[Rfam]
Nucleotides: 202
Stems, first nucleotide, its partner, number of pairs: 016112003024107004030101003043098003047094009060080006131141001133139001171197011
Number, partner (000 for none) and nucleotide at each position: 001000g002000c003000a004000a005000c006000a007000u008000a009000a010000c011000a012000c013000g014000a015000a016112a017111g018110g019000a020000c021000u022000g023000a024107u025106g026105g027104g028000u029000g030101g031100a032099c033000a034000a035000u036000g037000g038000a039000u040000a041000a042000c043098u044097a045096a046000g047094c048093c049092u050091a051090u052089u053088u054087u055086u056000a057000a058000a059000c060080g061079u062078u063077g064076a065075a066000u067000c068000g069000c070000a071000u072000u073000a074000u075065u076064u077063c078062a079061a080060c081000u082000g083000a084000u085000a086055a087054a088053a089052a090051g091050u092049a093048g094047g095000a096045u097044u098043a099032g100031u101030c102000u103000g104027c105026c106025c107024a108000u109000u110018u111017u112016u113000a114000c115000a116000u117000g118000u119000a120000a121000c122000c123000u124000a125000u126000c127000u128000a129000g130000c131141c132000a133139u134000u135000c136000g137000c138000u139133a140000a141131g142000u143000a144000g145000c146000u147000u148000a149000u150000u151000a152000a153000g154000u155000g156000c157000g158000g159000u160000a161000a162000u163000c164000a165000a166000u167000g168000a169000c170000u171197a172196a173195u174194c175193c176192u177191u178190c179189c180188a181187a182000c183000a184000u185000a186000a187181u188180u189179g190178g191177g192176a193175g194174g195173a196172u197171u198000u199000u200000u201000u202000a
Bacillus sRNA ncr1575: a 202-nucleotide sequence from Salipaludibacillus agaradhaerens. The match comes from Rfam's covariance-model search (140 bits). A reference for the family is Irnov et al. (2010), "Identification of regulatory RNAs in Bacillus subtilis", Nucleic Acids Res. It is annotated as a small RNA.